[Rfam]
Nucleotides: 076
Base pairs, nucleotide, nucleotide: 002075003074004073005072010067011066012065013064014063015062016061018059019058020057024055025054026053027052028051029050030049031048032047
Number, partner (000 for none) and nucleotide at each position: 001000a002075c003074a004073g005072g006000u007000a008000u009000u010067g011066u012065a013064a014063a015062c016061a017000u018059c019058c020057u021000a022000c023000a024055c025054u026053c027052u028051c029050a030049g031048c032047u033000g034000u035000g036000g037000a038000a039000a040000c041000u042000a043000a044000g045000a046000a047032a048031g049030c050029u051028g052027g053026g054025a055024g056000a057020a058019g059018g060000c061016u062015g063014u064013u065012u066011a067010c068000u069000c070000u071000u072005c073004c074003u075002g076000c
A member of the RNA family "mir-30 microRNA precursor family" from Malurus cyaneus, 76 nucleotides long. The base pairs follow the family's consensus structure, which was predicted with PFOLD. Rfam's curators write: This family consists of the mammalian microRNA (miRNA) precursor mir-30a. Animal miRNAs are transcribed as ~70nt precursors and subsequently processed by the Dicer enzyme to give a ~22nt product. In this case the mature sequence comes from both the 3' (miR-30) and 5' (mir-97-6) arms of the precursor. The extents of the hairpin precursors are not generally known and are estimated based on hairpin prediction. The products are thought to have regulatory roles through complementarity to mRNA. The involvement of Dicer in miRNA processing suggests a relationship with the phenomenon of RNA interference. miRNAs are numbered based on the sequence of the mature RNA. The source organism's lineage runs through Eukaryota, Craniata, Vertebrata, Sarcopterygii and Malurus cyaneus. A search with the family's covariance model found it, with a score of 71 bits.